[Rfam]
RNA sequence: CCAAAGUAGAGUUCAGUAGCUACUAUAAAAAUAGGGCGGAAUCUGAAAAGUUUUGUGAGUAAGAAUAAAA
Numbered sequence: 001c002c003a004a005a006g007u008a009g010a011g012u013u014c015a016g017u018a019g020c021u022a023c024u025a026u027a028a029a030a031a032u033a034g035g036g037c038g039g040a041a042u043c044u045g046a047a048a049a050g051u052u053u054u055g056u057g058a059g060u061a062a063g064a065a066u067a068a069a070a
Stems, first nucleotide, its partner, number of pairs: 006023004035052003042064002